[Rfam]
RNA sequence: CAUCAAGUAGUAGCACACACCUUAUUCCUUUGGGAGCAGGAAUGCAUUCAUAACAUGCUACAUUAAAAAAGGAGUUCCCAGGACUGCCAACCUUACAGGAGAGGUUGAGUGGUAGUAUAUUCCUCCUACAUAA
Dot-bracket structure: (((..........(...(.((...........)).)...)..............))).............((((........((..((((((((......))))))).)..)).........)))).......